[Rfam]
The family of this 143-nucleotide RNA from Aedoeadaptatus coxii is "glmS glucosamine-6-phosphate activated ribozyme aptamer". Rfam classes the family as a riboswitch. A search with the family's covariance model found it, with a score of 71 bits. The base pairs follow the family's consensus structure, which is taken from published work.

RNA sequence: GAAGACGAUCAAGCGCCAGCACCUAUAUGGUGGACGAGGAAUGAAGUGAUCGAAAUCAUCGGCGGAUGCUUCAUAGGUCUGCAACCUUAGUAUUGUACAAAACAUCGGGCAACCGUUGCACAAAAUCAAUACGGCAGCUCCCC
Numbered sequence: 001g002a003a004g005a006c007g008a009u010c011a012a013g014c015g016c017c018a019g020c021a022c023c024u025a026u027a028u029g030g031u032g033g034a035c036g037a038g039g040a041a042u043g044a045a046g047u048g049a050u051c052g053a054a055a056u057c058a059u060c061g062g063c064g065g066a067u068g069c070u071u072c073a074u075a076g077g078u079c080u081g082c083a084a085c086c087u088u089a090g091u092a093u094u095g096u097a098c099a100a101a102a103c104a105u106c107g108g109g110c111a112a113c114c115g116u117u118g119c120a121c122a123a124a125a126u127c128a129a130u131a132c133g134g135c136a137g138c139u140c141c142c143c
Stems, first nucleotide, its partner, number of pairs: 020032004041074005050062004075087004090132006103118002106115003